[Rfam]
A member of the RNA family "Guanidine-I riboswitch aptamer" from Sporobacter termitidis, 104 nucleotides long. About the family: This family represents a conserved RNA structure found upstream of the ykkC and yxkD genes in Bacillus subtilis and related genes in other bacteria. Lineage of the source: Bacteria > Clostridia > Oscillospiraceae > Sporobacter > Sporobacter termitidis.

RNA sequence: UAUUCAGUUUUAUAGGGUUCCGCAGUUUAAUGUUGUAAACUGGUCAGGUCCGAGAUAAAACGCACAGCUUGCUGUGUUCACGGAAGGACAAAAGCCUGGGAGAU
Dot-bracket structure: ......((((((..((...(((((((((........))))))..).)).))....))))))((((((....)))))).(.[...(((.......))).)..]..